The family of this 432-nucleotide RNA sequence from Rhizobium sp. LC145 is "Bacterial RNase P class A". The family is grouped with related families in Rfam's "RNaseP clan". The family's RNA type in Rfam is ribozyme. Lineage of the source: Bacteria > Pseudomonadota > Hyphomicrobiales > Rhizobiaceae > Rhizobium.
RNA sequence: CCAGUCGGCCGGGCAGCCGCGCUUCACCAAUGCCGAAAGGCGGUGAGGUGAGGAAAGUCCGGGCUCCACGGAAACACGGUGCCGGAUAACAUCCGGCGGGGGCGACCCUAGGGAAAGUGCCACAGAAAGCAGACCGCCCCGCUUUUUCCACCGCUCGUCGAGCGGCCGAAAUGGCGGGGUAAGGGUGAAAGGGUGGGGUAAGAGCCCACCGCGCCUCUGGCAACAGAGGCGGCACGGUAAACCCCACCGGGAGCAAGACCGAAUAGGGAUGACGAGGGACGUGCGAAAGCGCGUCUACAGCCGGUUUCUGGGCCAGUCAUCCGGGUGGGUUGCGUGAGGCGGUGUGCAAGCAUCGUCCCAGAUGAAUGGCUGCCACGUUCCGGUGCUUGCAUCGGAGCCAUACAGAACCCGGCUUACAGGCCGACUGGCUCU
Numbered sequence: 001c002c003a004g005u006c007g008g009c010c011g012g013g014c015a016g017c018c019g020c021g022c023u024u025c026a027c028c029a030a031u032g033c034c035g036a037a038a039g040g041c042g043g044u045g046a047g048g049u050g051a052g053g054a055a056a057g058u059c060c061g062g063g064c065u066c067c068a069c070g071g072a073a074a075c076a077c078g079g080u081g082c083c084g085g086a087u088a089a090c091a092u093c094c095g096g097c098g099g100g101g102g103c104g105a106c107c108c109u110a111g112g113g114a115a116a117g118u119g120c121c122a123c124a125g126a127a128a129g130c131a132g133a134c135c136g137c138c139c140c141g142c143u144u145u146u147u148c149c150a151c152c153g154c155u156c157g158u159c160g161a162g163c164g165g166c167c168g169a170a171a172u173g174g175c176g177g178g179g180u181a182a183g184g185g186u187g188a189a190a191g192g193g194u195g196g197g198g199u200a201a202g203a204g205c206c207c208a209c210c211g212c213g214c215c216u217c218u219g220g221c222a223a224c225a226g227a228g229g230c231g232g233c234a235c236g237g238u239a240a241a242c243c244c245c246a247c248c249g250g251g252a253g254c255a256a257g258a259c260c261g262a263a264u265a266g267g268g269a270u271g272a273c274g275a276g277g278g279a280c281g282u283g284c285g286a287a288a289g290c291g292c293g294u295c296u297a298c299a300g301c302c303g304g305u306u307u308c309u310g311g312g313c314c315a316g317u318c319a320u321c322c323g324g325g326u327g328g329g330u331u332g333c334g335u336g337a338g339g340c341g342g343u344g345u346g347c348a349a350g351c352a353u354c355g356u357c358c359c360a361g362a363u364g365a366a367u368g369g370c371u372g373c374c375a376c377g378u379u380c381c382g383g384u385g386c387u388u389g390c391a392u393c394g395g396a397g398c399c400a401u402a403c404a405g406a407a408c409c410c411g412g413c414u415u416a417c418a419g420g421c422c423g424a425c426u427g428g429c430u431c432u
Stems, first nucleotide, its partner, number of pairs: 001428010011417001012374007020050009055415003059412005064253004073309001077249005082096005097111001098109004112244002117242002119238003134184002136180008192210006211233001212231008257331004267322006303313001305311001338357008